[Rfam]
RNA sequence: UAUUGUUAACGGAACUUGGCACGGGCGUUGAGGUAACUCUACGCCCGUGUACGCAUAUAUAGGGUAAAGUCCACCGA
Number, nucleotide and partner (000 for none) at each position: 001u000002a000003u018004u000005g015006u000007u000008a000009a000010c000011g000012g000013a000014a000015c005016u000017u000018g003019g050020c049021a048022c047023g046024g045025g044026c043027g042028u000029u000030g039031a038032g037033g000034u000035a000036a000037c032038u031039c030040u000041a000042c027043g026044c025045c024046c023047g022048u021049g020050u019051a000052c000053g000054c000055a000056u000057a000058u000059a000060u000061a000062g000063g000064g000065u000066a000067a000068a000069g000070u000071c000072c000073a000074c000075c000076g000077a000

The record is a 77-nucleotide RNA sequence from Limnobaculum parvum, which matches "tpke11" in Rfam. It scores 54 bits against the family's covariance model. About the family: In Yersinia located in ICR upstream dnaJ (chaperone)gene. Has temperature responsive RNA structure.